A member of the RNA family "Small nucleolar RNA snoR8a", 89 nucleotides long. The family's RNA type in Rfam is C/D-box small nucleolar RNA. Gene Ontology terms of the family: nucleolus and RNA processing. The family has 7 seed sequences and 956 matches in Rfam 15.1. The match comes from Rfam's covariance-model search (86 bits).

RNA sequence: UUGGCAGCGAUGAUUAUAAAAGUAAUUCCUCGUUCUGAAUGCCGUUGGCUUGAUAGACAUAUAUUACACCCAUAGAAUAUGAGCUGACC
Numbered sequence: 001u002u003g004g005c006a007g008c009g010a011u012g013a014u015u016a017u018a019a020a021a022g023u024a025a026u027u028c029c030u031c032g033u034u035c036u037g038a039a040u041g042c043c044g045u046u047g048g049c050u051u052g053a054u055a056g057a058c059a060u061a062u063a064u065u066a067c068a069c070c071c072a073u074a075g076a077a078u079a080u081g082a083g084c085u086g087a088c089c
Stems, first nucleotide, its partner, number of pairs: 003089002006085002